[Rfam]
RNA sequence: ACACCACUGGGCGAAGCGAAUGGGCUACGGUUCUGUAAAAGGAACCAGGCUCAGGAAAGUCCCCGGGCCACUAACUGCAGAGAUGCAGUCCUGGAAACAGGUAACCUCCGAGAACUUGGAGCCUUAAUCGCCUUGCGCGAUGGGCUGAGACACGUGUGGAGCCUUGGGCUUCAAGCCCGGAGCAUCCUUGGCCGAUGGUACAGUUAUUCGCUUGGUCCUUUGGACUAACUGAACGGGGCUUACGAUCCAGUGGUG
Numbered sequence: 001a002c003a004c005c006a007c008u009g010g011g012c013g014a015a016g017c018g019a020a021u022g023g024g025c026u027a028c029g030g031u032u033c034u035g036u037a038a039a040a041g042g043a044a045c046c047a048g049g050c051u052c053a054g055g056a057a058a059g060u061c062c063c064c065g066g067g068c069c070a071c072u073a074a075c076u077g078c079a080g081a082g083a084u085g086c087a088g089u090c091c092u093g094g095a096a097a098c099a100g101g102u103a104a105c106c107u108c109c110g111a112g113a114a115c116u117u118g119g120a121g122c123c124u125u126a127a128u129c130g131c132c133u134u135g136c137g138c139g140a141u142g143g144g145c146u147g148a149g150a151c152a153c154g155u156g157u158g159g160a161g162c163c164u165u166g167g168g169c170u171u172c173a174a175g176c177c178c179g180g181a182g183c184a185u186c187c188u189u190g191g192c193c194g195a196u197g198g199u200a201c202a203g204u205u206a207u208u209c210g211c212u213u214g215g216u217c218c219u220u221u222g223g224a225c226u227a228a229c230u231g232a233a234c235g236g237g238g239c240u241u242a243c244g245a246u247c248c249a250g251u252g253g254u255g
Stems, first nucleotide, its partner, number of pairs: 002255010014213006022052004029046006057241003061238004076087004090101004115180002121176002124173001126171001130169004142164004152157001215225004
RNA: RNase MRP
Organism: Prunus armeniaca